[Rfam]
RNA sequence: UCCACCGCGAGGUGGAAUCCGAAGGAAGUCUGAGGCAAAACCUCGAUCCGACGAACAGAAACUACAUACAAGGCCGCAAGUGUUGGGUGAGGCUGCAAAACAAGCCGAAGCCCUAAACUGUACGGAAACACUAUGGUAAAUGUAGCGGAUACAUGAGGUGAAAGUUAUUGUU
Numbered sequence: 001u002c003c004a005c006c007g008c009g010a011g012g013u014g015g016a017a018u019c020c021g022a023a024g025g026a027a028g029u030c031u032g033a034g035g036c037a038a039a040a041c042c043u044c045g046a047u048c049c050g051a052c053g054a055a056c057a058g059a060a061a062c063u064a065c066a067u068a069c070a071a072g073g074c075c076g077c078a079a080g081u082g083u084u085g086g087g088u089g090a091g092g093c094u095g096c097a098a099a100a101c102a103a104g105c106c107g108a109a110g111c112c113c114u115a116a117a118c119u120g121u122a123c124g125g126a127a128a129c130a131c132u133a134u135g136g137u138a139a140a141u142g143u144a145g146c147g148g149a150u151a152c153a154u155g156a157g158g159u160g161a162a163a164g165u166u167a168u169u170g171u172u
Stems, first nucleotide, its partner, number of pairs: 001016006028172001030170001032168001035165002040159006046150005062145006073137003079132005085113004091106004
Shown here is a 172-nucleotide sequence from Leadbetterella byssophila, a member of the family "Group II catalytic intron D1-D4-3".